[Rfam]
RNA: MIR480 microRNA precursor family
Organism: Populus deltoides
RNA sequence: UGAUCUGUCUGGGAUAAAUUCUCAUCUAGUUAUCGUAAACCUGCAUCUAACUACUCAAAAUUACUUGUUAGCUUGACUGCAUCAAAAGUGUUUUGUAAAGAACUUGCUUUCAAAGCAGAUAUAUUAUCUUAGAAAAGCAA
Numbered sequence: 001u002g003a004u005c006u007g008u009c010u011g012g013g014a015u016a017a018a019u020u021c022u023c024a025u026c027u028a029g030u031u032a033u034c035g036u037a038a039a040c041c042u043g044c045a046u047c048u049a050a051c052u053a054c055u056c057a058a059a060a061u062u063a064c065u066u067g068u069u070a071g072c073u074u075g076a077c078u079g080c081a082u083c084a085a086a087a088g089u090g091u092u093u094u095g096u097a098a099a100g101a102a103c104u105u106g107c108u109u110u111c112a113a114a115g116c117a118g119a120u121a122u123a124u125u126a127u128c129u130u131a132g133a134a135a136a137g138c139a140a
Base pairs, nucleotide, nucleotide: 005137006136008133009132012129014127015126018124019123024122025121027118029116030115031114